[Rfam]
RNA sequence: UCCGGCAGGACGCCGGACAAGUUGUAUGUGUGCGAGUUUUAGGCUUGUGCCUAAAACUCGAGUUCAAAACCGAAUAGGAGGUUCGGUUUUGAAACGUAA
Number, nucleotide and partner (000 for none) at each position: 001u017002c016003c015004g014005g013006c012007a000008g000009g000010a000011c000012g006013c005014c004015g003016g002017a001018c000019a000020a000021g000022u000023u000024g000025u000026a000027u000028g000029u000030g000031u000032g000033c060034g059035a058036g057037u056038u055039u054040u053041a052042g051043g050044c000045u000046u000047g000048u000049g000050c043051c042052u041053a040054a039055a038056a037057c036058u035059c034060g033061a000062g095063u094064u092065c091066a090067a089068a088069a087070c086071c085072g084073a083074a082075u081076a000077g000078g000079a000080g000081g075082u074083u073084c072085g071086g070087u069088u068089u067090u066091g065092a064093a000094a063095c062096g000097u000098a000099a000